Purine riboswitch aptamer: a 104-nucleotide RNA sequence from Salibacterium salarium. The family's consensus secondary structure is taken from published work. Lineage of the source: Bacteria > Bacilli > Caryophanales > Bacillaceae > Salibacterium. The match comes from Rfam's covariance-model search (72 bits).
RNA sequence: AUAAGUGAAAUGUUCAUACCUCAUAUAUUAUCAGGAAUACGGCCUGAACACGUUUCUACCCGGAGACCUUAAAUCACCGGACUAUGAGGGGAAGUAUGGCAAGG
Numbered sequence: 001a002u003a004a005g006u007g008a009a010a011u012g013u014u015c016a017u018a019c020c021u022c023a024u025a026u027a028u029u030a031u032c033a034g035g036a037a038u039a040c041g042g043c044c045u046g047a048a049c050a051c052g053u054u055u056c057u058a059c060c061c062g063g064a065g066a067c068c069u070u071a072a073a074u075c076a077c078c079g080g081a082c083u084a085u086g087a088g089g090g091g092a093a094g095u096a097u098g099g100c101a102a103g104g
Stems, first nucleotide, its partner, number of pairs: 019089007031047005060080004065075002